RNA: Small nucleolar RNA R64/Z200 family
RNA sequence: CUUCUGCUGUGAUGAUCUUUUGAAUAAAAUUCACAUGUCAGACUUCAGAGAUCUUUUGAUCUAUGAGAAAAAACAUUCAUAAUUCUGAGCAGAAG
Dot-bracket structure: (((((((..........................................((((....))))...........................)))))))
Numbered sequence: 001c002u003u004c005u006g007c008u009g010u011g012a013u014g015a016u017c018u019u020u021u022g023a024a025u026a027a028a029a030u031u032c033a034c035a036u037g038u039c040a041g042a043c044u045u046c047a048g049a050g051a052u053c054u055u056u057u058g059a060u061c062u063a064u065g066a067g068a069a070a071a072a073a074c075a076u077u078c079a080u081a082a083u084u085c086u087g088a089g090c091a092g093a094a095g
Stems, first nucleotide, its partner, number of pairs: 001095007050061004